[Rfam]
RNA sequence: CGCGUAUCGAGAGAGGCGCGAGGGUACCGGCCCGAUGACCGCCCGGCAACCCGGUGGACGCCGCCAGGGUGCCAAAGCCGGCCCCGUCCAAUAGGGCGGGGGACGAUACGGC
Numbered sequence: 001c002g003c004g005u006a007u008c009g010a011g012a013g014a015g016g017c018g019c020g021a022g023g024g025u026a027c028c029g030g031c032c033c034g035a036u037g038a039c040c041g042c043c044c045g046g047c048a049a050c051c052c053g054g055u056g057g058a059c060g061c062c063g064c065c066a067g068g069g070u071g072c073c074a075a076a077g078c079c080g081g082c083c084c085c086g087u088c089c090a091a092u093a094g095g096g097c098g099g100g101g102g103a104c105g106a107u108a109c110g111g112c
Stems, first nucleotide, its partner, number of pairs: 003110006013044001015043004022033003027081004045073004050069002053065004077104001082101006
The record is a 112-nucleotide RNA sequence from bacterium HR29, which matches "SAM riboswitch aptamer (S box leader)" in Rfam. From the family's description: The SAM riboswitch is found upstream of a number of genes which code for proteins involved in methionine or cysteine biosynthesis in Gram-positive bacteria.